This 139-nucleotide RNA belongs to the Rfam family "Glutamine riboswitch aptamer (glnA leader)". Rfam links the family to the GO term glutamine binding.
RNA sequence: AUCGUUCAUUCAAUGCUCUUUUUUAGUGCAUUGAACGGAAGUAGGAAGAUAGGAAAACCUCUUUCUGCACGAUGUGUAGAAAGGCUAGCUAGUACCUUUUAUAGGGAACGAGACCGAAUAUCUACCGAAGGAACGCGUU
Number, nucleotide and partner (000 for none) at each position: 001a000002u000003c135004g134005u133006u132007c131008a000009u035010u034011c033012a032013a031014u030015g029016c028017u000018c000019u000020u000021u000022u000023u000024u000025a000026g000027u000028g016029c015030a014031u013032u012033g011034a010035a009036c000037g000038g136039a000040a000041g000042u000043a000044g126045g125046a000047a000048g000049a000050u000051a000052g000053g000054a000055a000056a000057a000058c000059c000060u000061c000062u000063u000064u000065c000066u000067g000068c000069a000070c000071g000072a000073u000074g000075u000076g000077u000078a000079g000080a000081a000082a000083g000084g000085c000086u000087a000088g000089c000090u000091a000092g000093u000094a000095c000096c000097u000098u000099u000100u000101a000102u000103a000104g000105g000106g000107a000108a000109c000110g000111a000112g000113a000114c000115c000116g000117a000118a000119u000120a000121u000122c000123u000124a000125c045126c044127g000128a000129a000130g000131g007132a006133a005134c004135g003136c038137g000138u000139u000